[Rfam]
RNA sequence: GCUGUGGCUCACUCUAAGUAUGAACGCCAAGCAUAUAUUUUAGAGUUUGGUGUUCUACCUUACAGUGAAUCGAGCU
Numbered sequence: 001g002c003u004g005u006g007g008c009u010c011a012c013u014c015u016a017a018g019u020a021u022g023a024a025c026g027c028c029a030a031g032c033a034u035a036u037a038u039u040u041u042a043g044a045g046u047u048u049g050g051u052g053u054u055c056u057a058c059c060u061u062a063c064a065g066u067g068a069a070u071c072g073a074g075c076u
Stems, first nucleotide, its partner, number of pairs: 006071002009068005015062003025052008
RNA: mir-971 microRNA precursor family